[Rfam]
RNA sequence: CUCUUAUCAAGAGAGGUGGAGGGAAAAAGGCCCUAUGAAACCCGGCAACCGGUCAAUGUACCAUGGUGCCAAUUCCUGUAGAUUUAUUCUGCGAGAUAAGAA
Dot-bracket structure: .(((((((....(.(((...(((....[[[)))......))))((((.(((((......)))..))))))...(]]].((((.....))))..)))))))).
Shown here is a 102-nucleotide RNA sequence from Clostridium tagluense, a member of the family "SAM riboswitch aptamer (S box leader)". Lineage of the source: Bacteria > Bacillati > Eubacteriales > Clostridiaceae > Clostridium. The base pairs follow the family's consensus structure, which is taken from published work.